[Rfam]
RNA sequence: AAGUGUAACAGCUCUUUUAGAAUUUGUCUAGCAGGUCUUCCGGUCUUUACUGGAAGGCCCUU
Numbered sequence: 001a002a003g004u005g006u007a008a009c010a011g012c013u014c015u016u017u018u019a020g021a022a023u024u025u026g027u028c029u030a031g032c033a034g035g036u037c038u039u040c041c042g043g044u045c046u047u048u049a050c051u052g053g054a055a056g057g058c059c060c061u062u
Stems, first nucleotide, its partner, number of pairs: 034059011
RNA: U7 small nuclear RNA
Organism: Microcebus murinus